A member of the RNA family "c-di-GMP-I riboswitch aptamer" from Isachenkonia alkalipeptolytica, 74 nucleotides long. The base pairs follow the family's consensus structure, which is taken from published work. A search with the family's covariance model found it, with a score of 66 bits. For this family Rfam cites "Identification of 22 candidate structured RNAs in bacteria using the CMfinder comparative genomics pipeline" (Weinberg et al., Nucleic Acids Res, 2007).

[Rfam]
RNA sequence: CGCUGAUAAAGGCAAACCAAUAGGAAUAUUGGGACGCAAAGCUAUAGGGUCUGAGAAGGCAGCCAGCUACCAAA
Numbered sequence: 001c002g003c004u005g006a007u008a009a010a011g012g013c014a015a016a017c018c019a020a021u022a023g024g025a026a027u028a029u030u031g032g033g034a035c036g037c038a039a040a041g042c043u044a045u046a047g048g049g050u051c052u053g054a055g056a057a058g059g060c061a062g063c064c065a066g067c068u069a070c071c072a073a074a
Stems, first nucleotide, its partner, number of pairs: 012037002017032006040068004047064002049060003